[Rfam]
RNA sequence: UGUCCCAAAAUACAAGGUAUACGUAUAUGUCAUAUGUCAUAUACGUAUACCUUGUAUUUUGGGACA
Numbered sequence: 001u002g003u004c005c006c007a008a009a010a011u012a013c014a015a016g017g018u019a020u021a022c023g024u025a026u027a028u029g030u031c032a033u034a035u036g037u038c039a040u041a042u043a044c045g046u047a048u049a050c051c052u053u054g055u056a057u058u059u060u061g062g063g064a065c066a
Stems, first nucleotide, its partner, number of pairs: 003064005009058003013054002017050005024043006
The record is a 66-nucleotide RNA from Brassicogethes aeneus, which matches "mir-965 microRNA precursor family" in Rfam. It scores 43 bits against the family's covariance model. Taxonomically the source falls in Brassicogethes (Eukaryota, Metazoa, Bilateria, Hexapoda).